[Rfam]
Rfam assigns this 299-nucleotide RNA sequence from Platysternon megacephalum to the family "Nuclear RNase P". Rfam classes the family as a ribozyme. A search with the family's covariance model found it, with a score of 93 bits.
RNA sequence: UCACUGGGAAGUUCAUCACUAAGGUCACAUGCUGGGUAUUUAUCAUUCAUGCUCAAUACUUUGUGGAAGGUCUGAGAGCCAAUAGCUACCCUGUGGGUAUCACCUGAUACAGAUGGAUGAGUUUACUAGUAAGGCUGGGCAUAUGCCUGAGAAGCUAAGGGAAGAGAGGGUCUUUCUCCCCUAGAAGAUGCUCACCUCCCAAGGGUUUAGGACAGACUCAUUGCUGAGCUCAAUGGGAUGAAGUGUGGCUAAUGCCAUGUAUGGUCCUCAUAACCCACUUCAGAUUAUUUUCCCUCUGA
Numbered sequence: 001u002c003a004c005u006g007g008g009a010a011g012u013u014c015a016u017c018a019c020u021a022a023g024g025u026c027a028c029a030u031g032c033u034g035g036g037u038a039u040u041u042a043u044c045a046u047u048c049a050u051g052c053u054c055a056a057u058a059c060u061u062u063g064u065g066g067a068a069g070g071u072c073u074g075a076g077a078g079c080c081a082a083u084a085g086c087u088a089c090c091c092u093g094u095g096g097g098u099a100u101c102a103c104c105u106g107a108u109a110c111a112g113a114u115g116g117a118u119g120a121g122u123u124u125a126c127u128a129g130u131a132a133g134g135c136u137g138g139g140c141a142u143a144u145g146c147c148u149g150a151g152a153a154g155c156u157a158a159g160g161g162a163a164g165a166g167a168g169g170g171u172c173u174u175u176c177u178c179c180c181c182u183a184g185a186a187g188a189u190g191c192u193c194a195c196c197u198c199c200c201a202a203g204g205g206u207u208u209a210g211g212a213c214a215g216a217c218u219c220a221u222u223g224c225u226g227a228g229c230u231c232a233a234u235g236g237g238a239u240g241a242a243g244u245g246u247g248g249c250u251a252a253u254g255c256c257a258u259g260u261a262u263g264g265u266c267c268u269c270a271u272a273a274c275c276c277a278c279u280u281c282a283g284a285u286u287a288u289u290u291u292c293c294c295u296c297u298g299a
Stems, first nucleotide, its partner, number of pairs: 001299003007293003012242004016237002020063005034048004072283005077225003087099005100116003104112002117221007138206001140204001243271003247267002